[Rfam]
RNA sequence: CUCUUAUCAAGAGAGGUGGAGGGACUGGCCCGAUGAAACCCGGCAACCAUCAAACGCAAUGUUUGAACGGUGCUAAUGCCUGUGGAACGACUGUUCUAAACGAUGAGAG
Numbered sequence: 001c002u003c004u005u006a007u008c009a010a011g012a013g014a015g016g017u018g019g020a021g022g023g024a025c026u027g028g029c030c031c032g033a034u035g036a037a038a039c040c041c042g043g044c045a046a047c048c049a050u051c052a053a054a055c056g057c058a059a060u061g062u063u064u065g066a067a068c069g070g071u072g073c074u075a076a077u078g079c080c081u082g083u084g085g086a087a088c089g090a091c092u093g094u095u096c097u098a099a100a101c102g103a104u105g106a107g108a109g
Base pairs, nucleotide, nucleotide: 001109002108003107004106005105006104007103008102013041015040016039017038021031022030023029025082027080028079042074043073044072045071047070048069050066051065052064053063078101083098084097085096086095087094088093
Shown here is a 109-nucleotide sequence from Aneurinibacillus sp. XH2, a member of the family "SAM riboswitch aptamer (S box leader)". The organism belongs to Aneurinibacillus, within Bacteria. It scores 89 bits against the family's covariance model. Rfam describes the family as follows. The SAM riboswitch is found upstream of a number of genes which code for proteins involved in methionine or cysteine biosynthesis in Gram-positive bacteria.